[Rfam]
The family of this 35-nucleotide RNA is "DUF805b RNA".
It is annotated as a cis-regulatory element.
RNA sequence: CCGGAGGUACCCGAAAAUCCAUUAAAGAGUAGGGA
Numbered sequence: 001c002c003g004g005a006g007g008u009a010c011c012c013g014a015a016a017a018u019c020c021a022u023u024a025a026a027g028a029g030u031a032g033g034g035a
Stems, first nucleotide, its partner, number of pairs: 003020003010034003